[Rfam]
RNA sequence: UUUUACCACUAGGGGUGCUUUUAAGCUGAGAGAGGUGAGCUGCCUUAACCCUUUGACCUGAUCUAGGUAAAGCUAGCGUAGGAAAGUGGAAGUUGGCCCCG
Numbered sequence: 001u002u003u004u005a006c007c008a009c010u011a012g013g014g015g016u017g018c019u020u021u022u023a024a025g026c027u028g029a030g031a032g033a034g035g036u037g038a039g040c041u042g043c044c045u046u047a048a049c050c051c052u053u054u055g056a057c058c059u060g061a062u063c064u065a066g067g068u069a070a071a072g073c074u075a076g077c078g079u080a081g082g083a084a085a086g087u088g089g090a091a092g093u094u095g096g097c098c099c100c101g
Stems, first nucleotide, its partner, number of pairs: 006089005011052004017026003033045005057082004063076004
This 101-nucleotide RNA from Bacillus taeanensis belongs to the Rfam family "TPP riboswitch aptamer (THI element)". Gene Ontology term of the family: thiamine pyrophosphate binding.